[Rfam]
RNA sequence: AGAAUAUAAGAAAACGUCUCUUAACUUUUAACUAAAAAAGCUAAGAACCAGUUAUUAAAUAAAAUAUUUAAGAGCCGGUUCUUAAUUUUUUUAGUUAAAAGUUAAGAAACGGUUUCUUAUAUUCG
Numbered sequence: 001a002g003a004a005u006a007u008a009a010g011a012a013a014a015c016g017u018c019u020c021u022u023a024a025c026u027u028u029u030a031a032c033u034a035a036a037a038a039a040g041c042u043a044a045g046a047a048c049c050a051g052u053u054a055u056u057a058a059a060u061a062a063a064a065u066a067u068u069u070a071a072g073a074g075c076c077g078g079u080u081c082u083u084a085a086u087u088u089u090u091u092u093a094g095u096u097a098a099a100a101g102u103u104a105a106g107a108a109a110c111g112g113u114u115u116c117u118u119a120u121a122u123u124c125g
Stems, first nucleotide, its partner, number of pairs: 002124012015111003019107021042084006

Rfam assigns this 125-nucleotide sequence from Brassica oleracea to the family "MIR9563 microRNA precursor family". Gene Ontology terms of the family: RISC complex and miRNA-mediated post-transcriptional gene silencing. The family's consensus secondary structure was predicted with RNAalifold. Taxonomically the source falls in Brassica oleracea (Eukaryota, Streptophytina, Euphyllophyta, Pentapetalae).